[Rfam]
RNA: Lysine riboswitch aptamer
Organism: Zophobihabitans entericus
RNA sequence: AAACAAAGAAGAGGCGCAUUACUCAGGCAGAUGAUUUCAGGAGACUGGCUCCGUUUAUCAAUCAUUCAGGGGAUGUAAUGCCGAGGUCAGGUAAUUCCAGCUUAUUACCCGAUCGGCUACAAGGGCUGAAUCCCUUGGGUUGUCACCUUACAAUUUCUAAGGUGGAGCGCUUCCUGGUUA
Numbered sequence: 001a002a003a004c005a006a007a008g009a010a011g012a013g014g015c016g017c018a019u020u021a022c023u024c025a026g027g028c029a030g031a032u033g034a035u036u037u038c039a040g041g042a043g044a045c046u047g048g049c050u051c052c053g054u055u056u057a058u059c060a061a062u063c064a065u066u067c068a069g070g071g072g073a074u075g076u077a078a079u080g081c082c083g084a085g086g087u088c089a090g091g092u093a094a095u096u097c098c099a100g101c102u103u104a105u106u107a108c109c110c111g112a113u114c115g116g117c118u119a120c121a122a123g124g125g126c127u128g129a130a131u132c133c134c135u136u137g138g139g140u141u142g143u144c145a146c147c148u149u150a151c152a153a154u155u156u157c158u159a160a161g162g163u164g165g166a167g168c169g170c171u172u173c174c175u176g177g178u179u180a
Stems, first nucleotide, its partner, number of pairs: 006175001008173004016081007030066007085114004090109006115141004120137006143165007